[Rfam]
RNA: Small nucleolar RNA SNORA63
RNA sequence: UUGCAGGUUAAGUUACGUAGCAGCUGUUGUAGUGCUGCUCUGUCGUUCCCCCUGCACACAGAAAAUGUUACCUACUAUCCCUGUCUGUCUGCAUCCUUCGACUGGCAGGGACGCUUGGUCUCAGACAU
Numbered sequence: 001u002u003g004c005a006g007g008u009u010a011a012g013u014u015a016c017g018u019a020g021c022a023g024c025u026g027u028u029g030u031a032g033u034g035c036u037g038c039u040c041u042g043u044c045g046u047u048c049c050c051c052c053u054g055c056a057c058a059c060a061g062a063a064a065a066u067g068u069u070a071c072c073u074a075c076u077a078u079c080c081c082u083g084u085c086u087g088u089c090u091g092c093a094u095c096c097u098u099c100g101a102c103u104g105g106c107a108g109g110g111a112c113g114c115u116u117g118g119u120c121u122c123a124g125a126c127a128u
Base pairs, nucleotide, nucleotide: 003055004054005053006052007051015043016042017041019039020038021037022036023035024034080109081108082107083106085104087102088101